[Rfam]
RNA sequence: ACGGAAGCCCGGCAAGGCCAAGAUGUCACCAGAAGAGAAGGCGACACCUCCCGAACCGCGGCGACCCAGCACGGAACCCGGCACCCACGCGGAGCACCUGCCGCGAAAUUGGCAAAAGUGUUGCGGGCCUGCGUUGAUGCGAGGAGCGGACGACCACGACGGCUCUUUGGGUGGAGCAGUCCGUCGAAGCGCAUCGCACUGACGCCGAGGCCGACCCACGCAACCCCCACAGCACGCUUGGUAACCGGACUCCGGGCUGGCGGGCGGCGAACUGAAUUCGGAUUCGGAUCGCCGCCCGCUUCACGUU
Dot-bracket structure: ..((..((((((...((...((..(((.((.........)).)))..)).))...))).)))..))((((.((((..((((...(((.(((..((...((((........)))).....(((((((((((((((...(((((...(((..((((.....(.(((((......))))).)...))))...))).)))))...))))..)))))......)))))).......)).))).)))...))))..)))).))))(((((((((((.(((..........))).)))))))))))........
This 307-nucleotide RNA from Mycolicibacterium doricum belongs to the Rfam family "Mycobacterium smegmatis small RNA 1".
Rfam links the family to the GO term RNA polymerase binding.
Rfam's curators write: Mycobacterium smegmatis small RNA 1 is highly expressed during stationary phase of growth.
A search with the family's covariance model found it, with a score of 255 bits.
The literature on the family includes a 2014 paper in Nucleic Acids Res by Hnilicova et al., "Ms1, a novel sRNA interacting with the RNA polymerase core in mycobacteria".
The family's consensus secondary structure was predicted with CMfinder.
Lineage of the source: Bacteria > Actinomycetota > Actinomycetes > Mycobacterium > Mycobacterium (subgen. Mycolicibacterium).